[Rfam]
RNA sequence: CGGGUUUACUCCUGGAUGUUCCAUUAAACUUAAUAGUUAUCUAUUAAGCGGUUUUGGUGUCUGAUUCAUUGGAAUCGGGAGCACCAUCUGCGUAGGCCUAUAAGAUUAAGGUUAACCACCUACGGUCUUGGAUAGCCCCCGCCAGGCAGGGACCCCAAUCUUGUUAGCACCAUUUAUUAAUGGUGC
Number, nucleotide and partner (000 for none) at each position: 001c000002g155003g154004g153005u152006u151007u150008a000009c000010u000011c146012c145013u144014g143015g000016a000017u000018g000019u000020u000021c000022c000023a000024u051025u050026a000027a000028a000029c048030u047031u046032a045033a044034u043035a042036g041037u000038u000039a000040u000041c036042u035043a034044u033045u032046a031047a030048g029049c000050g025051g024052u000053u000054u000055u086056g085057g084058u083059g082060u081061c078062u077063g076064a075065u074066u073067c072068a000069u000070u000071g000072g067073a066074a065075u064076c063077g062078g061079g000080a000081g060082c059083a058084c057085c056086a055087u000088c000089u000090g142091c141092g140093u000094a000095g137096g136097c135098c000099u134100a000101u000102a000103a000104g133105a000106u131107u130108a129109a128110g127111g126112u125113u124114a000115a000116c000117c000118a000119c000120c000121u000122a000123c000124g113125g112126u111127c110128u109129u108130g107131g106132a000133u104134a099135g097136c096137c095138c000139c000140c092141g091142c090143c014144a013145g012146g011147c000148a000149g000150g007151g006152a005153c004154c003155c002156c000157a000158a000159u000160c000161u000162u000163g000164u000165u000166a000167g000168c185169a184170c183171c182172a181173u180174u000175u000176a000177u000178u000179a000180a173181u172182g171183g170184u169185g168186c000
About this RNA:
The record is a 186-nucleotide RNA sequence from Entomomonas asaccharolytica, which matches "Pseudomonas sRNA P27" in Rfam. Pairs were carried over by alignment from the consensus structure, which was predicted with WAR. Rfam classes the family as a small RNA. For this family Rfam cites "Identification of 17 Pseudomonas aeruginosa sRNAs and prediction of sRNA-encoding genes in 10 diverse pathogens using the bioinformatic tool sRNAPredict2" (Livny et al., Nucleic Acids Res, 2006).